[Rfam]
RNA sequence: CGCUUUUUUCGCCCGGACGGAACUCGACCGCAAACCCAAGUAAUGGUCAACUUUAUCAAUCGCCACAGAACCGCUUACGAGGUCGAGUCAAUCUGCCGCAUCCGGCCAUAUCGGCUUCA
Numbered sequence: 001c002g003c004u005u006u007u008u009u010c011g012c013c014c015g016g017a018c019g020g021a022a023c024u025c026g027a028c029c030g031c032a033a034a035c036c037c038a039a040g041u042a043a044u045g046g047u048c049a050a051c052u053u054u055a056u057c058a059a060u061c062g063c064c065a066c067a068g069a070a071c072c073g074c075u076u077a078c079g080a081g082g083u084c085g086a087g088u089c090a091a092u093c094u095g096c097c098g099c100a101u102c103c104g105g106c107c108a109u110a111u112c113g114g115c116u117u118c119a
Stems, first nucleotide, its partner, number of pairs: 018030003079118004089114001092110001094108001095106004

This 119-nucleotide sequence from Paralysiella testudinis belongs to the Rfam family "ALIL pseudoknot". The literature on the family includes a 2008 paper in J Biol Chem by Mazauric et al., "Apical loop-internal loop RNA pseudoknots: a new type of stimulator of -1 translational frameshifting in bacteria". It scores 53 bits against the family's covariance model.